[Rfam]
RNA sequence: AUCGCAAUCCGAGCCAUCGAUCUUAUAAGAUAGGAAAGUCCGGACAGUACAGGGCGGCUCGCUGCUUGUUAAAGGCAGGUGCGUUUUACGUAACGGCAAGUGCAACAGAAAACAAACCAGCCGUGACCUUUGCGUCACUGGUGAUGGGUGCAAUGGUGAGGUAAGAGCUCACCGGCAAUGCAAGUGAUUGUGUUGGCCAGGUAAACCCCGGGCACUGAAAGACCAUGUAAACCCCGGCUUGAAGGCUGCCCGCCUAAACGGGGAGGGUAGGUCGAGAAGAUAAAUGAUGGCAUAGAACAGAAUCCGGCUUACGGGAUUGCAACAUGA
Numbered sequence: 001a002u003c004g005c006a007a008u009c010c011g012a013g014c015c016a017u018c019g020a021u022c023u024u025a026u027a028a029g030a031u032a033g034g035a036a037a038g039u040c041c042g043g044a045c046a047g048u049a050c051a052g053g054g055c056g057g058c059u060c061g062c063u064g065c066u067u068g069u070u071a072a073a074g075g076c077a078g079g080u081g082c083g084u085u086u087u088a089c090g091u092a093a094c095g096g097c098a099a100g101u102g103c104a105a106c107a108g109a110a111a112a113c114a115a116a117c118c119a120g121c122c123g124u125g126a127c128c129u130u131u132g133c134g135u136c137a138c139u140g141g142u143g144a145u146g147g148g149u150g151c152a153a154u155g156g157u158g159a160g161g162u163a164a165g166a167g168c169u170c171a172c173c174g175g176c177a178a179u180g181c182a183a184g185u186g187a188u189u190g191u192g193u194u195g196g197c198c199a200g201g202u203a204a205a206c207c208c209c210g211g212g213c214a215c216u217g218a219a220a221g222a223c224c225a226u227g228u229a230a231a232c233c234c235c236g237g238c239u240u241g242a243a244g245g246c247u248g249c250c251c252g253c254c255u256a257a258a259c260g261g262g263g264a265g266g267g268u269a270g271g272u273c274g275a276g277a278a279g280a281u282a283a284a285u286g287a288u289g290g291c292a293u294a295g296a297a298c299a300g301a302a303u304c305c306g307g308c309u310u311a312c313g314g315g316a317u318u319g320c321a322a323c324a325u326g327a
Stems, first nucleotide, its partner, number of pairs: 002322001004320007011312001013291006020031004036310003040307005045217004052251004057213005062078005079094001080092004095208002100206002102202002117147002120142002125135001155173006175197001176195008221273004232263005243255004
Dot-bracket structure: .(.((((((((.((((((.((((....))))....[[[.[[[[[((((...[[[[.((((((((((.......)))))(((((.....)))).)((...((((.............((.((...(.........).....))...)).......((((((.......)))))).(((((((((....)))))))).)...))..)))))))))))))...((((.......(((((......((((.]]]]))))...)))))......))))............))))))...........]]]]]]]].).))))))).).....
RNA: Bacterial RNase P class A
Organism: Salibacter halophilus